[Rfam]
RNA sequence: GGCUUCAACAACCCCGUAGGUUGGGCCGCAAGGCAGCGAAUCUACUGGAGCC
Dot-bracket structure: (((((((.....[[.((((((((.(((....))).])]))))))))))))))
Rfam assigns this 52-nucleotide sequence from Candidatus Korobacter versatilis to the family "nadA riboswitch". It is annotated as a small RNA.